[Rfam]
Record summary:
A member of the RNA family "U2 spliceosomal RNA" from Panagrellus redivivus, 190 nucleotides long. NCBI's taxonomy places the organism under Eukaryota, Metazoa, Tylenchina, Panagrolaimidae, Panagrellus. By type it is a spliceosomal small nuclear RNA. U2 is a small nuclear RNA (snRNA) component of the spliceosome (involved in pre-mRNA splicing). Complementary binding between U2 snRNA (in an area lying towards the 5' end but 3' to hairpin I) and the branchpoint sequence (BPS) of the intron results the bulging out of an unpaired adenosine, on the BPS, which initiates a nucleophilic attack at the intronic 5' splice site, thus starting the first of two transesterification reactions that mediate splicing. It scores 152 bits against the family's covariance model.
RNA sequence: AUCGCUUCUCGGCCUUUUGGCUAAGAUCAAAGUGUAGUAUCUGUUCUUAUAGUUUUAACCAACUGUACGGUACAAUUGUACCAAUUCUGGUUAAUUAAUUUUUGGGACUUGGCGGAAUGCAGGAGCUUGCUCCUCUUCUGCCGCGGGUCGACCCGGUAUAGCACUUACCUCCGGGAACGGCCCAUCCUCC
Numbered sequence: 001a002u003c004g005c006u007u008c009u010c011g012g013c014c015u016u017u018u019g020g021c022u023a024a025g026a027u028c029a030a031a032g033u034g035u036a037g038u039a040u041c042u043g044u045u046c047u048u049a050u051a052g053u054u055u056u057a058a059c060c061a062a063c064u065g066u067a068c069g070g071u072a073c074a075a076u077u078g079u080a081c082c083a084a085u086u087c088u089g090g091u092u093a094a095u096u097a098a099u100u101u102u103u104g105g106g107a108c109u110u111g112g113c114g115g116a117a118u119g120c121a122g123g124a125g126c127u128u129g130c131u132c133c134u135c136u137u138c139u140g141c142c143g144c145g146g147g148u149c150g151a152c153c154c155g156g157u158a159u160a161g162c163a164c165u166u167a168c169c170u171c172c173g174g175g176a177a178c179g180g181c182c183c184a185u186c187c188u189c190c
Stems, first nucleotide, its partner, number of pairs: 007026003011022004048067006069082005111142007122133004145183006152175005